The record is a 125-nucleotide RNA from Sediminispirochaeta smaragdinae, which matches "FMN riboswitch aptamer (RFN element)" in Rfam.
It scores 88 bits against the family's covariance model.
[Rfam]
RNA sequence: CAUUUUCUUCGAGGGAGGGACUUCGGGUCCCGACCGGCGGUGAUAGUCCGCAAUCCCGAAAGCCUUGGGGUGAAACGGUGAGAUUCCGUUACCGACAGUGAAAGUCUGGAUGGGAGAAGAAAUAU
Numbered sequence: 001c002a003u004u005u006u007c008u009u010c011g012a013g014g015g016a017g018g019g020a021c022u023u024c025g026g027g028u029c030c031c032g033a034c035c036g037g038c039g040g041u042g043a044u045a046g047u048c049c050g051c052a053a054u055c056c057c058g059a060a061a062g063c064c065u066u067g068g069g070g071u072g073a074a075a076c077g078g079u080g081a082g083a084u085u086c087c088g089u090u091a092c093c094g095a096c097a098g099u100g101a102a103a104g105u106c107u108g109g110a111u112g113g114g115a116g117a118a119g120a121a122a123u124a125u
Stems, first nucleotide, its partner, number of pairs: 004122007017031006033105002035094002037051004046092002054070003074090005096108003